[Rfam]
RNA: SAM riboswitch aptamer (S box leader)
Organism: Halalkalibacterium halodurans
RNA sequence: UUCUUAUCCAGAGAGGUGGAGGGAACGGCCCGAAGAAACCUCAGCAACCAGCCACGAUCCUGUGGUCAGGUGCUAAUUCCUGCAAGCAUUAUUUGCUUGAGAGAUAAGAG
Numbered sequence: 001u002u003c004u005u006a007u008c009c010a011g012a013g014a015g016g017u018g019g020a021g022g023g024a025a026c027g028g029c030c031c032g033a034a035g036a037a038a039c040c041u042c043a044g045c046a047a048c049c050a051g052c053c054a055c056g057a058u059c060c061u062g063u064g065g066u067c068a069g070g071u072g073c074u075a076a077u078u079c080c081u082g083c084a085a086g087c088a089u090u091a092u093u094u095g096c097u098u099g100a101g102a103g104a105u106a107a108g109a110g
Stems, first nucleotide, its partner, number of pairs: 001110008013042005021031003027080002043074004048070002050066001052064001078102001083099006